[Rfam]
Rfam assigns this 107-nucleotide RNA sequence from Shimazuella alba to the family "SAM riboswitch aptamer (S box leader)".
RNA sequence: CUCUUAUCCAGAGAGGUGGAGGGACAGGCCCUACGAUACCUCGGCAACCAUCCAAAUGAGGAAAGGUGCCAAUUCCUACAGAAUUUUUUGGUUCUGACAGAUGAGAG
Numbered sequence: 001c002u003c004u005u006a007u008c009c010a011g012a013g014a015g016g017u018g019g020a021g022g023g024a025c026a027g028g029c030c031c032u033a034c035g036a037u038a039c040c041u042c043g044g045c046a047a048c049c050a051u052c053c054a055a056a057u058g059a060g061g062a063a064a065g066g067u068g069c070c071a072a073u074u075c076c077u078a079c080a081g082a083a084u085u086u087u088u089u090g091g092u093u094c095u096g097a098c099a100g101a102u103g104a105g106a107g
Base pairs, nucleotide, nucleotide: 001107002106003105004104005103006102007101008100013042014041015040016039017038021031022030023029026077027076028075043070044069045068046067048066049065051062052061053060074099079096080095081094082093083092084091

The organism belongs to Shimazuella, within Bacteria. Rfam links the family to the GO term regulation of gene expression.